[Rfam]
RNA sequence: GGAUCGAUGAUGAGCAUAAGUGUCCGAGGACAGUGAGUGACACAUUGCAGAUGUCAAUCUGAGGUCA
Number, nucleotide and partner (000 for none) at each position: 001g000002g066003a065004u064005c063006g000007a000008u000009g000010a000011u000012g000013a000014g000015c000016a000017u000018a000019a000020g000021u000022g000023u000024c000025c000026g000027a000028g000029g000030a000031c000032a000033g000034u000035g000036a000037g000038u000039g000040a000041c000042a000043c000044a000045u000046u000047g000048c000049a000050g000051a000052u000053g000054u000055c000056a000057a000058u000059c000060u000061g000062a000063g005064g004065u003066c002067a000
The family of this 67-nucleotide sequence from Prolemur simus is "Small nucleolar RNA SNORD109A".
Gene Ontology terms of the family: RNA processing and nucleolus.
About the family: Humans have two copies of the SNORD109 gene, SNORD109A and SNORD109B.
The literature on the family includes a 2001 paper in Hum Mol Genet by Runte et al., "The IC-SNURF-SNRPN transcript serves as a host for multiple small nucleolar RNA species and as an antisense RNA for UBE3A".
The match comes from Rfam's covariance-model search (80 bits).
The source organism's lineage runs through Eukaryota, Eutheria, Boreoeutheria, Strepsirrhini and Prolemur.